[Rfam]
RNA sequence: CUGCUUGUGCUAAGGUGCAUCUAGUGCAGAUAGGGAAGUAGACUAGCACCUACUGCCCUAAAUGCUCCUUCUGGCAUAAGGA
Numbered sequence: 001c002u003g004c005u006u007g008u009g010c011u012a013a014g015g016u017g018c019a020u021c022u023a024g025u026g027c028a029g030a031u032a033g034g035g036a037a038g039u040a041g042a043c044u045a046g047c048a049c050c051u052a053c054u055g056c057c058c059u060a061a062a063u064g065c066u067c068c069u070u071c072u073g074g075c076a077u078a079a080g081g082a
Base pairs, nucleotide, nucleotide: 004080005079006078007077009075010074011073013069014068015067017065018064019063020062022060023059024058026056027055029054031052032051033050
Shown here is an 82-nucleotide RNA from Acipenser ruthenus, a member of the family "mir-17 microRNA precursor family". This family represents the microRNA (miRNA) precursor mir-17, family, which includes mir-20, mir-91, and mir-103. miRNAs are transcribed as ~70nt precursors (modelled here) and subsequently processed by the Dicer enzyme to give a ~22nt product. The family has 234 seed sequences and 4,687 matches in Rfam 15.1. On this family, see Lagos-Quintana et al., Science 2001: "Identification of novel genes coding for small expressed RNAs".